Shown here is an 84-nucleotide RNA from Neotoma lepida, a member of the family "mir-7578 microRNA precursor family". It scores 81 bits against the family's covariance model.
[Rfam]
RNA sequence: UCUGUAGUGGAGAAGAAGAGGGCUAGGUGGUGGGACAGAUAACUGAGACUCAGUGUCACAUGGCUCUCUGUCUUCUGCCUCAGA
Numbered sequence: 001u002c003u004g005u006a007g008u009g010g011a012g013a014a015g016a017a018g019a020g021g022g023c024u025a026g027g028u029g030g031u032g033g034g035a036c037a038g039a040u041a042a043c044u045g046a047g048a049c050u051c052a053g054u055g056u057c058a059c060a061u062g063g064c065u066c067u068c069u070g071u072c073u074u075c076u077g078c079c080u081c082a083g084a
Stems, first nucleotide, its partner, number of pairs: 001084003006080002009078001011076006019067007027059006

Taxonomically the source falls in Neotoma (Eukaryota, Vertebrata, Dipnotetrapodomorpha, Mammalia).